[Rfam]
Nucleotides: 223
Base pairs, nucleotide, nucleotide: 012039013038014037015036016035020033021032022031024030025190027188028187041093042092043091044090047088048087049086050085051083052082053078055076056075058073059072060071062069063068112217113215115214116213117212118211119210120209133208134207135206136205137204138203139166140165141164144160145159146158147157171202172201173200174199175198176197180192181191
Number, partner (000 for none) and nucleotide at each position: 001000c002000a003000a004000g005000u006000c007000c008000g009000c010000u011000a012039u013038u014037c015036a016035g017000u018000a019000g020033g021032a022031g023000g024030g025190u026000a027188g028187c029000g030024c031022c032021u033020c034000g035016c036015u037014g038013a039012a040000g041093c042092c043091c044090c045000g046000a047088g048087u049086c050085a051083u052082g053078g054000u055076c056075c057000g058073c059072u060071g061000c062069c063068c064000g065000u066000a067000a068063g069062g070000u071060c072059a073058g074000a075056g076055g077000u078053u079000a080000a081000g082052c083051g084000u085050u086049g087048a088047c089000a090044g091043g092042g093041g094000a095000a096000g097000g098000u099000g100000c101000a102000g103000g104000c105000u106000c107000g108000g109000u110000a111000u112217u113215g114000a115214g116213c117212u118211c119210c120209g121000a122000a123000a124000u125000c126000a127000c128000u129000c130000g131000u132000u133208g134207g135206g136205a137204g138203u139166g140165c141164c142000g143000a144160c145159c146158u147157u148000g149000u150000u151000g152000c153000u154000u155000g156000a157147a158146a159145g160144g161000g162000a163000a164141g165140g166139c167000c168000a169000c170000a171202c172201u173200g174199c175198u176197u177000u178000a179000a180192g181191c182000g183000c184000u185000a186000u187028g188027c189000g190025a191181g192180c193000g194000a195000c196000c197176a198175a199174g200173c201172a202171g203138g204137c205136u206135c207134c208133c209120c210119g211118g212117a213116g214115u215113c216000a217112g218000a219000g220000a221000c222000c223000c